[Rfam]
RNA sequence: UUGCCGGUGUGAGUCCGGUCCGGGUAGCUGCCAGGAGGCCCGGUAGCAGACUGGCGGUGUCGUGGGGAAACCUGCGGUGUCGAAGCCCAGUGUCGAAAGCCCUUGUAGGGGGAGCGACUGAGCGGUCCGUAGCGUGA
Dot-bracket structure: ...................(((((..............)))))......(((((((((((...(.(....).)...))))))....)))))........((((.....)))).(((...........))).......
RNA: Group II catalytic intron D1-D4-4